[Rfam]
RNA: U11 spliceosomal RNA
RNA sequence: AAAAAGGGUGUUUGCCGCUUUGAUGGCACGCGGCCGGUAACGGUCUGCGGGGUAUGGUUAUCAAGACAUACCCAACACAUAAUUUUUAUAACCGCGAGGCAGUUGGAUACCCAUAUGUACCGGCGCCUCG
Numbered sequence: 001a002a003a004a005a006g007g008g009u010g011u012u013u014g015c016c017g018c019u020u021u022g023a024u025g026g027c028a029c030g031c032g033g034c035c036g037g038u039a040a041c042g043g044u045c046u047g048c049g050g051g052g053u054a055u056g057g058u059u060a061u062c063a064a065g066a067c068a069u070a071c072c073c074a075a076c077a078c079a080u081a082a083u084u085u086u087u088a089u090a091a092c093c094g095c096g097a098g099g100c101a102g103u104u105g106g107a108u109a110c111c112c113a114u115a116u117g118u119a120c121c122g123g124c125g126c127c128u129c130g
Stems, first nucleotide, its partner, number of pairs: 008078005013028005029049005035043001050073007097128004102124005108119003
Dot-bracket structure: .......((((((((((......)))))(((((.(.......).)))))(((((((..........))))))))))))..................((((.(((((.(((......))))))))))))..